[Rfam]
RNA sequence: GGAUCAGUGAUGACUUCCACACAUGCAUUCCUUGGAAAGCUAAACAAAAUGAGUGAAAACUUUAUACUGUCAUCCUCUUCAAACUGAGGUCU
Numbered sequence: 001g002g003a004u005c006a007g008u009g010a011u012g013a014c015u016u017c018c019a020c021a022c023a024u025g026c027a028u029u030c031c032u033u034g035g036a037a038a039g040c041u042a043a044a045c046a047a048a049a050u051g052a053g054u055g056a057a058a059a060c061u062u063u064a065u066a067c068u069g070u071c072a073u074c075c076u077c078u079u080c081a082a083a084c085u086g087a088g089g090u091c092u
Base pairs, nucleotide, nucleotide: 001092002091003090004089005088026055027054028053029052030051032047033046034045

The family of this 92-nucleotide RNA from Piliocolobus tephrosceles is "Small nucleolar RNA SNORD116". Pairs were carried over by alignment from the consensus structure, which was predicted with PFOLD. On this family, see Cavaille et al., Proc Natl Acad Sci U S A 2000: "Identification of brain-specific and imprinted small nucleolar RNA genes exhibiting an unusual genomic organization".